[Rfam]
RNA: Glycine riboswitch aptamer
Organism: Chiayiivirga flava
RNA sequence: UGCACACACUCUGGAGAGACCGGCGUCGGCCGGCGCCGAAGGGGCAACACGCGCAGCGCCACGCGCGUCCAAACUCUCAGGCAAAAGGACAGAGGGGCGAAC
Numbered sequence: 001u002g003c004a005c006a007c008a009c010u011c012u013g014g015a016g017a018g019a020c021c022g023g024c025g026u027c028g029g030c031c032g033g034c035g036c037c038g039a040a041g042g043g044g045c046a047a048c049a050c051g052c053g054c055a056g057c058g059c060c061a062c063g064c065g066c067g068u069c070c071a072a073a074c075u076c077u078c079a080g081g082c083a084a085a086a087g088g089a090c091a092g093a094g095g096g097g098c099g100a101a102c
Base pairs, nucleotide, nucleotide: 007096009094010093011092012091013090020033021032022031023030035082036081037080038078039077042076043075044074049068050067051066052065053064054063
Dot-bracket structure: ......(.(((((......((((......)))).(((((..(((....((((((........)))))).....))))).))).......))))).)......